[Rfam]
RNA sequence: UGGUGUUAGACAGCUCUUUUAGAAUAUGUCUAGCAGGUUUUUCAGUUUUCACCAGAAUGCCCAC
Numbered sequence: 001u002g003g004u005g006u007u008a009g010a011c012a013g014c015u016c017u018u019u020u021a022g023a024a025u026a027u028g029u030c031u032a033g034c035a036g037g038u039u040u041u042u043c044a045g046u047u048u049u050c051a052c053c054a055g056a057a058u059g060c061c062c063a064c
Base pairs, nucleotide, nucleotide: 036061037060038059040057041056042055045052046051

U7 small nuclear RNA: a 64-nucleotide sequence from Pan troglodytes. Animal histone pre-mRNAs are spliced by a different mechanism than nuclear pre-mRNAs and self-splicing introns. This processing involves the U7 snRNP, which contains only one RNA species: U7. The 5' end of U7 RNA is thought to base-pair to a conserved spacer element downstream of the cleavage site in histone pre-mRNA. This family contains a number of annotated U7 pseudogenes. The base pairs follow the family's consensus structure, which was predicted with PFOLD.